[Rfam]
The record is a 62-nucleotide sequence from Piliocolobus tephrosceles, which matches "U7 small nuclear RNA" in Rfam. For this family Rfam cites "Identification of the human U7 snRNP as one of several factors involved in the 3' end maturation of histone premessenger RNA's" (Mowry and Steitz, Science, 1987). It scores 56 bits against the family's covariance model. Animal histone pre-mRNAs are spliced by a different mechanism than nuclear pre-mRNAs and self-splicing introns. The organism belongs to Piliocolobus, within Eukaryota.

RNA sequence: UGGUGUUAUGGUUCUUUUAGAAUUUGUCUAGCAGGUUUUCUGAUUUUUGCUAGAAAGCUCUC
Numbered sequence: 001u002g003g004u005g006u007u008a009u010g011g012u013u014c015u016u017u018u019a020g021a022a023u024u025u026g027u028c029u030a031g032c033a034g035g036u037u038u039u040c041u042g043a044u045u046u047u048u049g050c051u052a053g054a055a056a057g058c059u060c061u062c
Stems, first nucleotide, its partner, number of pairs: 034059009044049001